[Rfam]
RNA sequence: GGCAAAUGCACUCUGUGUCACAUUGAAACACAGCCUCAUGUGAUGACAAUUUGUUAGUUUGCUAGAUCAAGUGGGAACGGGGCGUCUUAUCCAUGUGGUUGGUCUAUAACCAAGCUGAUCACAUUGAAAACGCAUCGUACAUCCU
Numbered sequence: 001g002g003c004a005a006a007u008g009c010a011c012u013c014u015g016u017g018u019c020a021c022a023u024u025g026a027a028a029c030a031c032a033g034c035c036u037c038a039u040g041u042g043a044u045g046a047c048a049a050u051u052u053g054u055u056a057g058u059u060u061g062c063u064a065g066a067u068c069a070a071g072u073g074g075g076a077a078c079g080g081g082g083c084g085u086c087u088u089a090u091c092c093a094u095g096u097g098g099u100u101g102g103u104c105u106a107u108a109a110c111c112a113a114g115c116u117g118a119u120c121a122c123a124u125u126g127a128a129a130a131c132g133c134a135u136c137g138u139a140c141a142u143c144c145u
Stems, first nucleotide, its partner, number of pairs: 002062006010054002014048003017044007025037002070142001073138001075136001077135001079133001083132002090127002093124008102115002

Background:
A member of the RNA family "Small nucleolar RNA psi18S-841/snoR66" from Drosophila pseudoobscura, 145 nucleotides long. psi18S-841 is a member of the H/ACA class of snoRNA. This family is responsible for guiding the modification of uridine 841 in Drosophila 18S rRNA to pseudouridine. Rfam links the family to the GO terms RNA processing and nucleolus. It is annotated as an H/ACA-box small nucleolar RNA. The family's consensus secondary structure was predicted with RNAfold. Taxonomically the source falls in Drosophila pseudoobscura (Eukaryota, Dicondylia, Muscomorpha, Drosophila).